Description
Small nucleolar RNA Z247: a 139-nucleotide RNA sequence from Zizania palustris. By type it is a C/D-box small nucleolar RNA. Gene Ontology terms of the family: RNA processing and nucleolus. A search with the family's covariance model found it, with a score of 66 bits. The base pairs follow the family's consensus structure, which was predicted with PFOLD. NCBI's taxonomy places the organism under Eukaryota, Streptophyta, Tracheophyta, Oryzoideae, Zizania. Rfam 15.1 lists 7,071 matches to the family in 142 species.
RNA sequence: CCUCUUGAUGAAGAGGACCUGGUUUCAUACAUUUUAACCGGACUAGAUGAGAGUUAUGAUUCAAUUAUUUCCUCACUUGUGUCAAGAGUUGAACCAGUAUCUGUUGGUGAAGUUUAUUUCCAAUUGUUACAUUUUGAGA
Number, nucleotide and partner (000 for none) at each position: 001c000002c000003u000004c138005u137006u136007g135008a134009u000010g000011a000012a000013g000014a000015g000016g000017a000018c000019c000020u000021g000022g000023u000024u000025u000026c000027a000028u000029a000030c000031a000032u000033u000034u000035u000036a000037a000038c000039c000040g000041g000042a000043c000044u000045a000046g000047a000048u000049g000050a000051g000052a000053g000054u000055u000056a000057u000058g000059a000060u000061u000062c000063a000064a000065u000066u000067a000068u000069u000070u000071c000072c000073u000074c000075a000076c000077u000078u000079g000080u000081g000082u000083c000084a000085a000086g000087a000088g108089u107090u106091g105092a104093a000094c000095c000096a000097g000098u000099a000100u000101c000102u000103g000104u092105u091106g090107g089108u088109g000110a000111a000112g000113u000114u000115u000116a000117u000118u000119u000120c000121c000122a000123a000124u000125u000126g000127u000128u000129a000130c000131a000132u000133u000134u008135u007136g006137a005138g004139a000